Shown here is a 125-nucleotide RNA from Galemys pyrenaicus, a member of the family "Small nucleolar RNA SNORA3/SNORA45 family". Lineage of the source: Eukaryota > Craniata > Mammalia > Laurasiatheria > Galemys. A reference for the family is Huttenhofer et al. (2001), "RNomics: an experimental approach that identifies 201 candidates for novel, small, non-messenger RNAs in mouse", EMBO J. About the family: The members of this family belong to the H/ACA class of snoRNAs which are thought to guide the sites of modification of uridines to pseudouridines.

RNA sequence: GUCAAGGUUUGAGUAAUGCAUGGAUAUUGUCUGUUGCCUUAGUGUGAUAGAAUCCUUGAAGAAUAGCUGCUGAUCUUACUGACUGGCCAUGUGGUAUAUAGUCAGUCACCAAGUUGGUGACAUGA
Numbered sequence: 001g002u003c004a005a006g007g008u009u010u011g012a013g014u015a016a017u018g019c020a021u022g023g024a025u026a027u028u029g030u031c032u033g034u035u036g037c038c039u040u041a042g043u044g045u046g047a048u049a050g051a052a053u054c055c056u057u058g059a060a061g062a063a064u065a066g067c068u069g070c071u072g073a074u075c076u077u078a079c080u081g082a083c084u085g086g087c088c089a090u091g092u093g094g095u096a097u098a099u100a101g102u103c104a105g106u107c108a109c110c111a112a113g114u115u116g117g118u119g120a121c122a123u124g125a
Stems, first nucleotide, its partner, number of pairs: 002059005007053003012048001016045004023038001025036002070117005076111001081107006089099004